A member of the RNA family "SAH (S-adenosyl-L-homocysteine) riboswitch aptamer" from Allopseudospirillum japonicum, 80 nucleotides long.
[Rfam]
RNA sequence: CUAAAUGAGGGGCGCUGCAACGGAAGAAGACUUCCGCCACGCUCAUUUAGGAUCGACCUCAGCAAGGGCGCCCAUUCACU
Numbered sequence: 001c002u003a004a005a006u007g008a009g010g011g012g013c014g015c016u017g018c019a020a021c022g023g024a025a026g027a028a029g030a031c032u033u034c035c036g037c038c039a040c041g042c043u044c045a046u047u048u049a050g051g052a053u054c055g056a057c058c059u060c061a062g063c064a065a066g067g068g069c070g071c072c073c074a075u076u077c078a079c080u
Base pairs, nucleotide, nucleotide: 002049003048004047005046006045007044008043021036022035023034024033025032026031
The source organism's lineage runs through Bacteria, Pseudomonadati, Oceanospirillales, Oceanospirillaceae and Allopseudospirillum.